Shown here is a 233-nucleotide RNA sequence from Streptomyces lucensis, a member of the family "Streptomyces sRNA 4677". The match comes from Rfam's covariance-model search (114 bits). Rfam describes the family as follows. Located in the intergenic region between anti-sigma factor SCO4677 gene and a putative regulatory protein gene SCO4676. scr4677 expression requires the SCO4677 activity and scr4677 sRNA itself seem to affect the levels of the SCO4676-associated transcripts.
RNA sequence: CGACCCGGUGGUGCGCGACCCCAAAAGACCAAAGAACCGGGGAAAGAACCGAACCCACCCCCACCGCCCCCGUCGAUCACUCGCCGGAGUGAAUAUGCCGAACGAAACUGGCGUGGCGCGGCAGUUGUGGUGCAACGUCGGGCAAGACACCACGUCCGUACAUGCAUCGGCCCCCGCCGGGAGUGGCUUCCCAGUGCGAGGGCCUGAUCACCGAGGAAGUAAGAGGCUUCCCA
Numbered sequence: 001c002g003a004c005c006c007g008g009u010g011g012u013g014c015g016c017g018a019c020c021c022c023a024a025a026a027g028a029c030c031a032a033a034g035a036a037c038c039g040g041g042g043a044a045a046g047a048a049c050c051g052a053a054c055c056c057a058c059c060c061c062c063a064c065c066g067c068c069c070c071c072g073u074c075g076a077u078c079a080c081u082c083g084c085c086g087g088a089g090u091g092a093a094u095a096u097g098c099c100g101a102a103c104g105a106a107a108c109u110g111g112c113g114u115g116g117c118g119c120g121g122c123a124g125u126u127g128u129g130g131u132g133c134a135a136c137g138u139c140g141g142g143c144a145a146g147a148c149a150c151c152a153c154g155u156c157c158g159u160a161c162a163u164g165c166a167u168c169g170g171c172c173c174c175c176g177c178c179g180g181g182a183g184u185g186g187c188u189u190c191c192c193a194g195u196g197c198g199a200g201g202g203c204c205u206g207a208u209c210a211c212c213g214a215g216g217a218a219g220u221a222a223g224a225g226g227c228u229u230c231c232c233a
Stems, first nucleotide, its partner, number of pairs: 007212004077092006108141004169204005175198003179192004215231005
Dot-bracket structure: ......((((..................................................................((((((....))))))...............((((..........................))))...........................(((((.(((.((((......))))...))).)))))....))))..(((((.......)))))..